[Rfam]
A member of the RNA family "Fungal signal recognition particle RNA" from Aspergillus clavatus, 266 nucleotides long. The family's RNA type in Rfam is non-coding RNA gene. Its Rfam clan is "SRP clan". The source organism's lineage runs through Eukaryota, Fungi, leotiomyceta, Aspergillus and Aspergillus clavatus. The base pairs follow the family's consensus structure, which is taken from published work. A reference for the family is Wild et al. (2002), "Towards the structure of the mammalian signal recognition particle", Curr Opin Struct Biol.

RNA sequence: AAUCUGUCAUGGAUAACCUAGUGGAAGACCCGCCGCUAAGUCAGUAACCUUGCUGCGGCAAUUGCCAGCGGGAAAGGUGCCCGGUACGAAUCCUGGGGUCGUCGCUGUACUCGUGCGAGUAAUCCACGAUGCUACAAGGCGCUAAGCAAUGGAAGUGAUUCUUGAGGGAAGCAAUUCUGCAGAGAUAUUUCCACCCUGGGAUGGCGUCGCCGGAUAACACCUACCCGUUACAGGGAAAUUGGCUGUCUGGCUGGACAACCGCAAUU
Numbered sequence: 001a002a003u004c005u006g007u008c009a010u011g012g013a014u015a016a017c018c019u020a021g022u023g024g025a026a027g028a029c030c031c032g033c034c035g036c037u038a039a040g041u042c043a044g045u046a047a048c049c050u051u052g053c054u055g056c057g058g059c060a061a062u063u064g065c066c067a068g069c070g071g072g073a074a075a076g077g078u079g080c081c082c083g084g085u086a087c088g089a090a091u092c093c094u095g096g097g098g099u100c101g102u103c104g105c106u107g108u109a110c111u112c113g114u115g116c117g118a119g120u121a122a123u124c125c126a127c128g129a130u131g132c133u134a135c136a137a138g139g140c141g142c143u144a145a146g147c148a149a150u151g152g153a154a155g156u157g158a159u160u161c162u163u164g165a166g167g168g169a170a171g172c173a174a175u176u177c178u179g180c181a182g183a184g185a186u187a188u189u190u191c192c193a194c195c196c197u198g199g200g201a202u203g204g205c206g207u208c209g210c211c212g213g214a215u216a217a218c219a220c221c222u223a224c225c226c227g228u229u230a231c232a233g234g235g236a237a238a239u240u241g242g243c244u245g246u247c248u249g250g251c252u253g254g255a256c257a258a259c260c261g262c263a264a265u266u
Base pairs, nucleotide, nucleotide: 002014003013004012019264021262022261023260024259027256029254030253033250034249035248037245038244041242042241043239045237048234049233055065056064057063058062069227070226071225075222076221077220078219079218081213082212083211084210085209086207087206088205090202091201092200093199094198095197096196097195098194100141102139103138106136107135108134109133111129112128113127114126115125117124118123142146150193151192152191153190154189155188156187160185161184162183163182168177169176170175
Dot-bracket structure: .(((.......)))....(.((((..(.((..(((.((..(((.(..((.....((((...))))...(((...(((((.((((((((.(((((((((.(.((..((((.(((((.((....)))))))...)))).)).)(...)...(((((((...((((....(((....)))....)))).))))))))))))))))..))).)))))....)))))..))).....))..).).)).))..)))..)).)..)))).)..